Rfam assigns this 176-nucleotide sequence from Oryza sativa to the family "MIR807 microRNA precursor family". Lineage of the source: Eukaryota > Viridiplantae > Embryophyta > Mesangiospermae > Oryza sativa. The family has 30 seed sequences and 1,514 matches in Rfam 15.1.
[Rfam]
RNA sequence: AACCACACUAUCGAUGAAUGGAUUCACUCGCGAGAUGAUGUGGUUGUUUCACAUAGGACGAGGACAUGGCAUCAUAUUACCAGCCAUCAGACAAAAUUAACAGGAUGCCACGUCCCCAUCCUAGAUGGAACAACCACGUCAUCUCGCGGGUAAAUCCAUUCAUGGAUAGUGUGGUU
Numbered sequence: 001a002a003c004c005a006c007a008c009u010a011u012c013g014a015u016g017a018a019u020g021g022a023u024u025c026a027c028u029c030g031c032g033a034g035a036u037g038a039u040g041u042g043g044u045u046g047u048u049u050c051a052c053a054u055a056g057g058a059c060g061a062g063g064a065c066a067u068g069g070c071a072u073c074a075u076a077u078u079a080c081c082a083g084c085c086a087u088c089a090g091a092c093a094a095a096a097u098u099a100a101c102a103g104g105a106u107g108c109c110a111c112g113u114c115c116c117c118a119u120c121c122u123a124g125a126u127g128g129a130a131c132a133a134c135c136a137c138g139u140c141a142u143c144u145c146g147c148g149g150g151u152a153a154a155u156c157c158a159u160u161c162a163u164g165g166a167u168a169g170u171g172u173g174g175u176u
Stems, first nucleotide, its partner, number of pairs: 001176007009168004014163002017160003021156004026151003030147004035142005041136008051126001054123002057120002063114003069108005075102001077100003086097002